RNA sequence: UCUUUUACAAAUCGGAAUGACCUGAAAUUUGGAGCAUGUGUUCAUAAAAAAUAGACGAAUCUAUGAAAAAUAUCAAAAAAAUAUUUUCCAUGAAAAAAAUUGAUCAAAAUACCCCAGAAAGGUUUUGGGGGUAUUUUAAUCAAUUUAUUUUUUGCGAAUUAUUUUUUUUAUAUUUUUAUUAGAUGCACCUUACUAAGAUGUACACAUGCUCCGAAUUUCAGGUCAUUUUGAUUUGUAGAAAA
Numbered sequence: 001u002c003u004u005u006u007a008c009a010a011a012u013c014g015g016a017a018u019g020a021c022c023u024g025a026a027a028u029u030u031g032g033a034g035c036a037u038g039u040g041u042u043c044a045u046a047a048a049a050a051a052u053a054g055a056c057g058a059a060u061c062u063a064u065g066a067a068a069a070a071u072a073u074c075a076a077a078a079a080a081a082u083a084u085u086u087u088c089c090a091u092g093a094a095a096a097a098a099a100u101u102g103a104u105c106a107a108a109a110u111a112c113c114c115c116a117g118a119a120a121g122g123u124u125u126u127g128g129g130g131g132u133a134u135u136u137u138a139a140u141c142a143a144u145u146u147a148u149u150u151u152u153u154g155c156g157a158a159u160u161a162u163u164u165u166u167u168u169u170a171u172a173u174u175u176u177u178a179u180u181a182g183a184u185g186c187a188c189c190u191u192a193c194u195a196a197g198a199u200g201u202a203c204a205c206a207u208g209c210u211c212c213g214a215a216u217u218u219c220a221g222g223u224c225a226u227u228u229u230g231a232u233u234u235g236u237a238g239a240a241a242a
Stems, first nucleotide, its partner, number of pairs: 001242001003240032036207006043200003061182003066177008075168006097146008106137009116125003
Dot-bracket structure: (.((((((((((((((((((((((((((((((((.((((((.(((...............(((..((((((((.((((((................((((((((.(((((((((.(((....)))...))))))))).))))))))................)))))).))))))))..)))...............))).)))))).)))))))))))))))))))))))))))))))).)
RNA: MIR8562 microRNA precursor family
Organism: Amborella trichopoda